[Rfam]
RNA: mir-981 microRNA precursor family
Organism: Diabrotica virgifera
RNA sequence: UCUUAGUAGUUACGGGUUUCGCGGCUUCGUAACCGUACUUUACUGGUUCGUUGUCGACGAAACCUGCAAUACCUAGGA
Numbered sequence: 001u002c003u004u005a006g007u008a009g010u011u012a013c014g015g016g017u018u019u020c021g022c023g024g025c026u027u028c029g030u031a032a033c034c035g036u037a038c039u040u041u042a043c044u045g046g047u048u049c050g051u052u053g054u055c056g057a058c059g060a061a062a063c064c065u066g067c068a069a070u071a072c073c074u075a076g077g078a
Stems, first nucleotide, its partner, number of pairs: 001078006013066009031048004
Dot-bracket structure: ((((((......(((((((((.........((((..........)))).........)))))))))......))))))